[Rfam]
RNA sequence: GCGAUGAGCUGAUUUGCAUAAGACGAAAAACGGAGCAAUACAUGUGAAUGUGAACACAUGGUUUUUCGCCGCAAACGAAGAAAAGGCGCCUAUUCUGAUAGGCGCC
Dot-bracket structure: .............((((......((((((((.........((.(((........))).))))))))))..))))..........(((((((((....)))))))))
Description: Rfam assigns this 106-nucleotide RNA from Virgibacillus phasianinus to the family "BsrF". On this family, see Saito et al., Gene 2008: "Novel small RNA-encoding genes in the intergenic regions of Bacillus subtilis".